[Rfam]
Nucleotides: 600
Base pairs, nucleotide, nucleotide: 011564013562019561021426023424024423028419029418030417317413318412319411320410321408322407325404329401330400331399332398335379336378339375340374343371344370345369346368350361351360352359387394388393431472432471433470434469435468436467441465445461446460447459448458483560484559485558486553487552488551490536491535495531496530498527499526500525501524505521506520540547541546566592567591568590575586576585577584578583
Number, partner (000 for none) and nucleotide at each position: 001000a002000a003000a004000g005000c006000u007000g008000u009000u010000g011564c012000a013562g014000u015000u016000a017000a018000a019561a020000a021426g022000c023424u024423c025000g026000u027000a028419g029418u030417u031000g032000g033000u034000c035000c036000u037000c038000g039000g040000g041000g042000c043000g044000g045000g046000a047000g048000u049000c050000g051000g052000c053000g054000g055000a056000c057000c058000c059000g060000g061000a062000c063000c064000a065000c066000c067000c068000a069000a070000g071000c072000c073000c074000c075000g076000c077000c078000g079000c080000c081000a082000c083000g084000g085000g086000g087000c088000c089000g090000g091000u092000g093000u094000u095000c096000a097000u098000c099000c100000g101000g102000c103000g104000u105000c106000g107000g108000u109000c110000u111000u112000u113000c114000g115000u116000c117000c118000c119000u120000g121000a122000g123000c124000g125000c126000c127000g128000g129000u130000c131000a132000c133000u134000c135000c136000c137000g138000u139000c140000g141000u142000c143000g144000g145000g146000u147000c148000g149000c150000c151000u152000c153000c154000c155000c156000c157000u158000a159000c160000c161000c162000u163000g164000g165000a166000g167000g168000a169000g170000c171000g172000c173000g174000g175000g176000u177000c178000g179000c180000g181000g182000c183000g184000g185000g186000c187000g188000g189000c190000c191000g192000g193000c194000c195000u196000c197000g198000u199000c200000a201000c202000c203000u204000u205000g206000a207000a208000a209000a210000a211000a212000u213000u214000g215000g216000a217000g218000u219000g220000u221000u222000c223000a224000a225000g226000g227000c228000g229000g230000g231000c232000a233000u234000u235000u236000g237000c238000u239000c240000g241000g242000a243000c244000a245000g246000c247000g248000u249000c250000g251000c252000a253000u254000g255000g256000c257000a258000u259000g260000g261000c262000c263000g264000u265000u266000a267000c268000g269000g270000a271000c272000c273000g274000c275000c276000g277000u278000c279000c280000c281000c282000u283000c284000g285000g286000c287000c288000g289000g290000u291000c292000u293000a294000a295000g296000g297000g298000a299000c300000g301000g302000a303000g304000g305000u306000a307000u308000u309000g310000g311000u312000u313000c314000a315000c316000a317413g318412a319411g320410g321408c322407g323000g324000a325404c326000g327000g328000g329401g330400g331399c332398a333000u334000u335379c336378g337000u338000a339375c340374g341000g342000a343371g344370g345369c346368g347000g348000g349000a350361g351360a352359g353000g354000u355000g356000a357000a358000a359352u360351u361350c362000g363000u364000u365000g366000a367000u368346c369345g370344c371343c372000g373000a374340c375339g376000g377000a378336c379335g380000a381000a382000c383000g384000a385000g386000a387394g388393c389000g390000a391000a392000a393388g394387c395000a396000u397000u398332u399331g400330u401329c402000a403000a404325g405000a406000a407322c408321g409000u410320u411319u412318u413317c414000g415000u416000u417030a418029a419028u420000c421000a422000a423024g424023a425000a426021c427000g428000a429000a430000a431472g432471u433470c434469u435468g436467a437000g438000g439000c440000u441465c442000g443000a444000a445461g446460a447459c448458g449000a450000u451000c452000a453000g454000a455000u456000a457000c458448c459447g460446u461445c462000g463000u464000a465441g466000u467436u468435c469434a470433g471432a472431c473000c474000g475000u476000a477000a478000a479000c480000g481000a482000u483560g484559c485558c486553g487552a488551c489000c490536g491535g492000c493000g494000a495531g496530c497000a498527g499526c500525g501524g502000a503000g504000g505521u506520c507000u508000a509000a510000a511000c512000u513000g514000u515000g516000g517000u518000a519000g520506g521505a522000a523000c524501c525500c526499g527498c528000g529000c530496g531495c532000g533000c534000c535491c536490c537000c538000g539000a540547g541546g542000g543000a544000a545000g546541c547540c548000a549000g550000a551488g552487u553486c554000u555000u556000u557000g558485g559484g560483u561019u562013c563000c564011g565000g566592g567591g568590g569000g570000a571000g572000u573000a574000u575586g576585g577584u578583c579000g580000c581000a582000a583578g584577g585576c586575u587000g588000a589000a590568c591567u592566u593000a594000a595000a596000g597000g598000a599000a600000u
This 600-nucleotide part of an RNA from Doto pinnatifida belongs to the Rfam family "Eukaryotic small subunit ribosomal RNA". The family is grouped with related families in Rfam's "SSU clan". It is one of the family's seed sequences. Rfam links the family to the GO terms ribosome and structural constituent of ribosome. The source organism's lineage runs through Eukaryota, Opisthokonta, Spiralia, Gastropoda and Doto. The base pairs follow the family's consensus structure, which is taken from published work.